[Rfam]
RNA sequence: UGUCAAGCUCUUUGACGUCAUUUAGGCGGGUGGAUUUCUUUUGCCUUUUGAAAGGUGAGGGGAAAUG
Numbered sequence: 001u002g003u004c005a006a007g008c009u010c011u012u013u014g015a016c017g018u019c020a021u022u023u024a025g026g027c028g029g030g031u032g033g034a035u036u037u038c039u040u041u042u043g044c045c046u047u048u049u050g051a052a053a054g055g056u057g058a059g060g061g062g063a064a065a066u067g
Base pairs, nucleotide, nucleotide: 009062010061011060012059013058016057017056018055019054021053022052023051025049026048028046030044031043032042033041034040
The family of this 67-nucleotide RNA is "S-element". On this family, see Venkova-Canova et al., Mol Microbiol 2004: "Two discrete elements are required for the replication of a repABC plasmid: an antisense RNA and a stem-loop structure". By type it is a cis-regulatory element. Rfam's curators write: This family represents a group of S-elements from p42d and related plasmids. The S-element has multiple functions and is believed to act as a negative regulator of repC transcription, be required for efficient replication and act as a translational enhancer of repC. Its family is annotated with translation regulator activity and mRNA transcription in the Gene Ontology.